[Rfam]
A member of the RNA family "Glycine riboswitch aptamer" from Pseudoblastomonas halimionae, 105 nucleotides long. About the family: This family represents the bacterial glycine riboswitch. Glycine riboswitches usually consist of two metabolite-binding aptamers domains with similar structures in tandem. The aptamers cooperatively bind glycine to regulate the expression of downstream genes. In Bacillus subtilis, this riboswitch is found upstream of the gcvT operon which controls glycine degradation. It scores 61 bits against the family's covariance model. NCBI's taxonomy places the organism under Bacteria, Alphaproteobacteria, Sphingomonadales, Erythrobacteraceae, Pseudoblastomonas.
RNA sequence: CUGAACCGCGCGGGAGAGAGCUCUCGAUUCGGGUCACCGGACCGAGAGACGCCGAAGGAGCAACCGCCCCGGAAUCUCUCAGGCGCAAGGGACCGCGCGGGGCGC
Dot-bracket structure: .....((((((((.......((((((................))))))..(((((..(((...((.....))...))))).)))........)))))))).....